[Rfam]
Alphaproteobacterial sRNA BjrC1505: a 134-nucleotide sequence from Afifella marina. A reference for the family is Madhugiri et al. (2012), "Small RNAs of the Bradyrhizobium/Rhodopseudomonas lineage and their analysis", RNA Biol. The organism belongs to Afifella marina, within Bacteria. It is annotated as a small RNA.

RNA sequence: UCCCCGCUUAACCGCGGAUUAACCUUUCUAAUUUCUAAUGACGCUAUCCAAUCAGGUUUGGAUGUGAGUGAUCCUGUUCACUCUGUUUGACGCCUCCCUGUAUCAGCCUAGAGCCGCCCAGCGGCUCUUUUUUU
Numbered sequence: 001u002c003c004c005c006g007c008u009u010a011a012c013c014g015c016g017g018a019u020u021a022a023c024c025u026u027u028c029u030a031a032u033u034u035c036u037a038a039u040g041a042c043g044c045u046a047u048c049c050a051a052u053c054a055g056g057u058u059u060g061g062a063u064g065u066g067a068g069u070g071a072u073c074c075u076g077u078u079c080a081c082u083c084u085g086u087u088u089g090a091c092g093c094c095u096c097c098c099u100g101u102a103u104c105a106g107c108c109u110a111g112a113g114c115c116g117c118c119c120a121g122c123g124g125c126u127c128u129u130u131u132u133u134u
Stems, first nucleotide, its partner, number of pairs: 001043001004040001005014002016036001021034002025030001047062004066083006090101003110128008